[Rfam]
RNA: Selenocysteine insertion sequence 1
Organism: Liparis tanakae
RNA sequence: CACACGUUAGUGAAGGUCUCACAGUAAACCAGCGUUGGGAUGUGAGGUCUGAUGUCUGUGUG
Numbered sequence: 001c002a003c004a005c006g007u008u009a010g011u012g013a014a015g016g017u018c019u020c021a022c023a024g025u026a027a028a029c030c031a032g033c034g035u036u037g038g039g040a041u042g043u044g045a046g047g048u049c050u051g052a053u054g055u056c057u058g059u060g061u062g
Base pairs, nucleotide, nucleotide: 001062002061003060004059005058015049016048017047018046019045020044021043022042023041029038030037031036
Dot-bracket structure: (((((.........(((((((((.....(((....)))..)))))))))........)))))